[Rfam]
RNA sequence: UUUUAAUGAUGAUAAAAAAAGUCAAAGCAAGUAGGGACAUGAGAAUAUUAAAUAUGUUCGUCUUAAUAUGUUGUCUGAAAAAA
Numbered sequence: 001u002u003u004u005a006a007u008g009a010u011g012a013u014a015a016a017a018a019a020a021g022u023c024a025a026a027g028c029a030a031g032u033a034g035g036g037a038c039a040u041g042a043g044a045a046u047a048u049u050a051a052a053u054a055u056g057u058u059c060g061u062c063u064u065a066a067u068a069u070g071u072u073g074u075c076u077g078a079a080a081a082a083a
Stems, first nucleotide, its partner, number of pairs: 001083004
small nucleolar RNA snoR22: an 83-nucleotide RNA from Plasmodium malariae. For this family Rfam cites "Structural RNAs of known and unknown function identified in malaria parasites by comparative genomics and RNA analysis" (Chakrabarti et al., RNA, 2007).